[Rfam]
A member of the RNA family "Alphaproteobacterial sRNA BjrC1505" from Mesorhizobium sp. ORS 3428, 144 nucleotides long.
Pairs were carried over by alignment from the consensus structure.
It is annotated as a small RNA.
For this family Rfam cites "Small RNAs of the Bradyrhizobium/Rhodopseudomonas lineage and their analysis" (Madhugiri et al., RNA Biol, 2012).

RNA sequence: CUCCGUGUUAAGGCUUCAUUAAGCUUUACGGGCGUUUACUGAGGCCAUCCAGUUUUCUGGAUUCUUACCGAGUGGUUGGAGCCACUUUGUUUGACGCCUCCCUGUUAAACUCCUGAGAGCCGCCUUAUCCGCGGCUCUUUUUUU
Numbered sequence: 001c002u003c004c005g006u007g008u009u010a011a012g013g014c015u016u017c018a019u020u021a022a023g024c025u026u027u028a029c030g031g032g033c034g035u036u037u038a039c040u041g042a043g044g045c046c047a048u049c050c051a052g053u054u055u056u057c058u059g060g061a062u063u064c065u066u067a068c069c070g071a072g073u074g075g076u077u078g079g080a081g082c083c084a085c086u087u088u089g090u091u092u093g094a095c096g097c098c099u100c101c102c103u104g105u106u107a108a109a110c111u112c113c114u115g116a117g118a119g120c121c122g123c124c125u126u127a128u129c130c131g132c133g134g135c136u137c138u139u140u141u142u143u144u
Stems, first nucleotide, its partner, number of pairs: 001043003005014002021035001023033003047062004070087006093106004115139009